[Rfam]
RNA sequence: GCUCUGGGGCAGGCCGGAAGACUUGUGAUUUUGUUGUUUCCAAUCUCAGAGGGAGCAAACAACAAAUCCCAGUCGCUGUCCUGCCCCAGGAA
Dot-bracket structure: ..((((((.((((.(((..((((.(.(((((.((((((...................))))))))))).))))).))).)))).))))))..
Numbered sequence: 001g002c003u004c005u006g007g008g009g010c011a012g013g014c015c016g017g018a019a020g021a022c023u024u025g026u027g028a029u030u031u032u033g034u035u036g037u038u039u040c041c042a043a044u045c046u047c048a049g050a051g052g053g054a055g056c057a058a059a060c061a062a063c064a065a066a067u068c069c070c071a072g073u074c075g076c077u078g079u080c081c082u083g084c085c086c087c088a089g090g091a092a
Stems, first nucleotide, its partner, number of pairs: 003090006010083004015078003020074004025070001027068005033063006